The record is a 73-nucleotide RNA from Rhipicephalus sanguineus, which matches "mir-219 microRNA precursor family" in Rfam. The literature on the family includes a 2003 paper in Science by Lim et al., "Vertebrate microRNA genes".
[Rfam]
RNA sequence: GCAGGCCGUGAUUGUCCAAACGCAAUUCUUGUGCGUUCGCUACCAAGAACUGUGUCUGGACAUCAGGGCUUGC
Dot-bracket structure: .((((((.((((.(((((..((((.((((((............)))))).))))..))))))))).)))))).
Numbered sequence: 001g002c003a004g005g006c007c008g009u010g011a012u013u014g015u016c017c018a019a020a021c022g023c024a025a026u027u028c029u030u031g032u033g034c035g036u037u038c039g040c041u042a043c044c045a046a047g048a049a050c051u052g053u054g055u056c057u058g059g060a061c062a063u064c065a066g067g068g069c070u071u072g073c
Stems, first nucleotide, its partner, number of pairs: 002072006009065004014061005021054004026049006